This 69-nucleotide RNA sequence from Medicago truncatula belongs to the Rfam family "MIR2629 microRNA precursor family". Lineage of the source: Eukaryota > Streptophyta > Mesangiospermae > Fabales > Medicago.

RNA sequence: UGCAGAAGGAAUUUCGAUAGUUAACUGCAGUCGGUUCUAAACUUCGGUAGUUAACUGCCGCAGGAGCAU
Numbered sequence: 001u002g003c004a005g006a007a008g009g010a011a012u013u014u015c016g017a018u019a020g021u022u023a024a025c026u027g028c029a030g031u032c033g034g035u036u037c038u039a040a041a042c043u044u045c046g047g048u049a050g051u052u053a054a055c056u057g058c059c060g061c062a063g064g065a066g067c068a069u
Stems, first nucleotide, its partner, number of pairs: 012065002014062001015060002018057011
Dot-bracket structure: ...........(((((.(((((((((((..................))))))))))).)).).))....